Rfam assigns this 89-nucleotide RNA from Neobacillus vireti to the family "Glycine riboswitch aptamer". A search with the family's covariance model found it, with a score of 70 bits. From the family's description: This family represents the bacterial glycine riboswitch. Taxonomically the source falls in Neobacillus vireti (Bacteria, Bacillota, Caryophanales, Bacillaceae). Gene Ontology term of the family: glycine biosynthetic process.
RNA sequence: AUGACAACAAGGGGAGAGACUACCUUUGUAGCGCCGAAGGAGCAAGCAGAUGAUGUGAAUCUCUCAGGCAAAAGAACUCUUGUUUGACG
Numbered sequence: 001a002u003g004a005c006a007a008c009a010a011g012g013g014g015a016g017a018g019a020c021u022a023c024c025u026u027u028g029u030a031g032c033g034c035c036g037a038a039g040g041a042g043c044a045a046g047c048a049g050a051u052g053a054u055g056u057g058a059a060u061c062u063c064u065c066a067g068g069c070a071a072a073a074g075a076a077c078u079c080u081u082g083u084u085u086g087a088c089g
Stems, first nucleotide, its partner, number of pairs: 006084008020031004033069003036065002040063003046056002